The family of this 241-nucleotide RNA sequence from Oryza sativa is "Early nodulin 40". Rfam links the family to the GO term nodulation.

RNA sequence: AUGGUGGGUGCAUGGCAGGAGCAUCUUCAUGGUUCUUGAGAUCGGGAGCAGCAUAAGCAGUAUGAGGAUGGAGAAGAAUGGCUGUGCUGUUCCUUCUCCUCCUCCUUCUCAAAAACUCUUCAGUUUGUCCAUGCCUUUCAUGGCAUAAUUCCCUGGAUUCCAGAAUCUCUGGGUGGCUUAGGGAGGUAUGAACAAACCGGCAAGUCAUAAAUCGGCAAUAGUGAGCUCCGACUGGAGCUUA
Numbered sequence: 001a002u003g004g005u006g007g008g009u010g011c012a013u014g015g016c017a018g019g020a021g022c023a024u025c026u027u028c029a030u031g032g033u034u035c036u037u038g039a040g041a042u043c044g045g046g047a048g049c050a051g052c053a054u055a056a057g058c059a060g061u062a063u064g065a066g067g068a069u070g071g072a073g074a075a076g077a078a079u080g081g082c083u084g085u086g087c088u089g090u091u092c093c094u095u096c097u098c099c100u101c102c103u104c105c106u107u108c109u110c111a112a113a114a115a116c117u118c119u120u121c122a123g124u125u126u127g128u129c130c131a132u133g134c135c136u137u138u139c140a141u142g143g144c145a146u147a148a149u150u151c152c153c154u155g156g157a158u159u160c161c162a163g164a165a166u167c168u169c170u171g172g173g174u175g176g177c178u179u180a181g182g183g184a185g186g187u188a189u190g191a192a193c194a195a196a197c198c199g200g201c202a203a204g205u206c207a208u209a210a211a212u213c214g215g216c217a218a219u220a221g222u223g224a225g226c227u228c229c230g231a232c233u234g235g236a237g238c239u240u241a
Stems, first nucleotide, its partner, number of pairs: 059100002117195001120192001134182003224239005
The family's consensus secondary structure is taken from published work. It is one of the family's seed sequences.